A member of the RNA family "MIR394 microRNA precursor family" from Camellia sinensis, 99 nucleotides long. Pairs were carried over by alignment from the consensus structure, which was predicted with WAR. Gene Ontology terms of the family: RISC complex and miRNA-mediated post-transcriptional gene silencing. Rfam 15.1 lists 724 matches to the family in 216 species. It scores 68 bits against the family's covariance model.
[Rfam]
RNA sequence: UUUACAAUGUUAUUUUGGCAUCUUGGCCACCUCCAAACACAAUAGAGAUCAAAUUGAACUUUGAUGGAGGUGGACAGAAUGCCAAAAUGGCUCUGUAAU
Number, nucleotide and partner (000 for none) at each position: 001u000002u000003u000004a000005c000006a000007a000008u000009g000010u000011u089012a000013u000014u000015u085016u084017g083018g082019c081020a080021u000022c000023u000024u076025g075026g000027c073028c072029a071030c070031c069032u068033c067034c066035a000036a000037a000038c000039a000040c000041a000042a000043u000044a000045g000046a000047g000048a000049u000050c000051a000052a000053a000054u000055u000056g000057a000058a000059c000060u000061u000062u000063g000064a000065u000066g034067g033068a032069g031070g030071u029072g028073g027074a000075c025076a024077g000078a000079a000080u020081g019082c018083c017084a016085a015086a000087a000088u000089g011090g000091c000092u000093c000094u000095g000096u000097a000098a000099u000